RNA sequence: CACGUGGUUAAUGAUGCACACUUUUUUCCCCGUCUUAUCGACUAUGGUGAAAAAAAACUGAAACUAAGCCAGUUGUGUCUGAAACCACUUG
Numbered sequence: 001c002a003c004g005u006g007g008u009u010a011a012u013g014a015u016g017c018a019c020a021c022u023u024u025u026u027u028c029c030c031c032g033u034c035u036u037a038u039c040g041a042c043u044a045u046g047g048u049g050a051a052a053a054a055a056a057a058c059u060g061a062a063a064c065u066a067a068g069c070c071a072g073u074u075g076u077g078u079c080u081g082a083a084a085c086c087a088c089u090u091g
Stems, first nucleotide, its partner, number of pairs: 001091002004088006
Shown here is a 91-nucleotide RNA sequence from Labrus bergylta, a member of the family "Small nucleolar SNORD12/SNORD106".
A reference for the family is Huttenhofer et al. (2001), "RNomics: an experimental approach that identifies 201 candidates for novel, small, non-messenger RNAs in mouse", EMBO J.